[Rfam]
RNA sequence: GUGGGAUGAGGUAGUAGGUUGGAUAGUUUUAGGGUUACACCUACACUGGGAGAUAACUGUAUAACCUACUGUCUUUCUCAA
Numbered sequence: 001g002u003g004g005g006a007u008g009a010g011g012u013a014g015u016a017g018g019u020u021g022g023a024u025a026g027u028u029u030u031a032g033g034g035u036u037a038c039a040c041c042u043a044c045a046c047u048g049g050g051a052g053a054u055a056a057c058u059g060u061a062u063a064a065c066c067u068a069c070u071g072u073c074u075u076u077c078u079c080a081a
Stems, first nucleotide, its partner, number of pairs: 002080005008075014023060005032042004